[Rfam]
RNA sequence: ACACGAGGAAGGAGGUGGUCCGAGUUGAGUUACUCAGGGACAUGUGAGGUGACCAUCCGCUGACGCGGAGUGCCAUCUGAUAUCCGCUCAGGAGGUCUCUGCACCGCGAAUACCAGGUGGUCACCCGGCCCCCGCACCCGACCCGUCCGGUCGACACGCCCGAUGCCUCGGGCGGUGCGGGGGCCGUUUCAC
Number, nucleotide and partner (000 for none) at each position: 001a000002c000003a000004c000005g000006a000007g000008g000009a000010a000011g000012g000013a000014g057015g056016u055017g054018g053019u052020c000021c000022g000023a000024g000025u000026u000027g000028a000029g000030u000031u000032a000033c000034u000035c000036a000037g000038g000039g000040a000041c000042a000043u000044g000045u000046g000047a000048g000049g000050u000051g000052a019053c018054c017055a016056u015057c014058c108059g107060c106061u000062g104063a000064c000065g102066c101067g100068g099069a000070g097071u000072g000073c000074c000075a000076u000077c000078u000079g000080a000081u000082a000083u000084c000085c000086g000087c000088u000089c000090a000091g000092g000093a000094g000095g000096u000097c070098u000099c068100u067101g066102c065103a000104c062105c000106g060107c059108g058109a000110a000111u000112a000113c000114c000115a000116g000117g000118u000119g000120g000121u000122c000123a000124c000125c000126c186127g185128g184129c183130c182131c181132c180133c179134g178135c177136a176137c175138c174139c153140g152141a151142c150143c000144c000145g000146u000147c000148c000149g000150g142151u141152c140153g139154a000155c000156a000157c000158g000159c000160c000161c000162g000163a000164u000165g000166c000167c000168u000169c000170g000171g000172g000173c000174g138175g137176u136177g135178c134179g133180g132181g131182g130183g129184c128185c127186g126187u000188u000189u000190c000191a000192c000
The record is a 192-nucleotide sequence from Gordonia sp. NB41Y, which matches "Actinobacteria sRNA Ms_IGR-5" in Rfam.
The match comes from Rfam's covariance-model search (102 bits).
Rfam classes the family as a small RNA.
Taxonomically the source falls in Gordonia (Bacteria, Bacillati, Actinomycetes, Mycobacteriales).
For this family Rfam cites "Identification of small RNAs in Mycobacterium smegmatis using heterologous Hfq" (Li et al., RNA, 2013).